[Rfam]
RNA sequence: AUAUCAUUUGGAUCGUCGGUCUACCGAGCAUUUGCAUCCGCUCCGUGGAAGAUUUUUCCUUUUUCGU
Numbered sequence: 001a002u003a004u005c006a007u008u009u010g011g012a013u014c015g016u017c018g019g020u021c022u023a024c025c026g027a028g029c030a031u032u033u034g035c036a037u038c039c040g041c042u043c044c045g046u047g048g049a050a051g052a053u054u055u056u057u058c059c060u061u062u063u064u065c066g067u
Stems, first nucleotide, its partner, number of pairs: 006062001010058003015053003020049005026043004
A member of the RNA family "mir-2774 microRNA precursor family" from Bombyx mori, 67 nucleotides long.
Its family is annotated with RISC complex and miRNA-mediated post-transcriptional gene silencing in the Gene Ontology.
NCBI's taxonomy places the organism under Eukaryota, Pterygota, Neoptera, Bombycoidea, Bombyx.
The family's consensus secondary structure was predicted with RNAalifold.
On this family, see Liu et al., BMC Genomics 2010: "MicroRNAs of Bombyx mori identified by Solexa sequencing".